This 102-nucleotide sequence from Sporolactobacillus laevolacticus belongs to the Rfam family "SAM riboswitch aptamer (S box leader)". The match comes from Rfam's covariance-model search (84 bits). Taxonomically the source falls in Sporolactobacillus laevolacticus (Bacteria, Bacillati, Bacilli, Sporolactobacillaceae).
RNA sequence: UUCUUAUCAAGAGUGGCGGAAGGACUGGCCUAAUGAAGCCCGACAACCAGCAUGGAUGAUGUAUGGUGUCAAUUCCAGCAGAUGUAAUCUGAGCGAUAAGAA
Numbered sequence: 001u002u003c004u005u006a007u008c009a010a011g012a013g014u015g016g017c018g019g020a021a022g023g024a025c026u027g028g029c030c031u032a033a034u035g036a037a038g039c040c041c042g043a044c045a046a047c048c049a050g051c052a053u054g055g056a057u058g059a060u061g062u063a064u065g066g067u068g069u070c071a072a073u074u075c076c077a078g079c080a081g082a083u084g085u086a087a088u089c090u091g092a093g094c095g096a097u098a099a100g101a102a
Stems, first nucleotide, its partner, number of pairs: 001102008013041001015040003021031003025078004042070004047066002050062003079091005